[Rfam]
RNA sequence: AGUUUACAGUAAAAUAAAUAUUUAAGUGGAGCCUGCGACUCCAGUCCCUCUGACUGACUGGGGUAAGUCUCUCGAGCGUUUGUUGGCACGUAAAAG
Number, nucleotide and partner (000 for none) at each position: 001a000002g000003u094004u093005u092006a091007c090008a000009g089010u088011a000012a000013a084014a083015u082016a081017a080018a079019u078020a000021u076022u075023u074024a000025a072026g071027u000028g069029g068030a000031g064032c063033c062034u061035g000036c000037g000038a000039c000040u000041c000042c052043a051044g000045u000046c000047c000048c000049u000050c000051u043052g042053a000054c000055u000056g000057a000058c000059u000060g000061g034062g033063g032064u031065a000066a000067g000068u029069c028070u000071c026072u025073c000074g023075a022076g021077c000078g019079u018080u017081u016082g015083u014084u013085g000086g000087c000088a010089c009090g007091u006092a005093a004094a003095a000096g000
This 96-nucleotide RNA from Drosophila yakuba belongs to the Rfam family "mir-289 microRNA precursor family". The organism belongs to Sophophora, within Eukaryota. The base pairs follow the family's consensus structure, which was predicted with RNAalifold.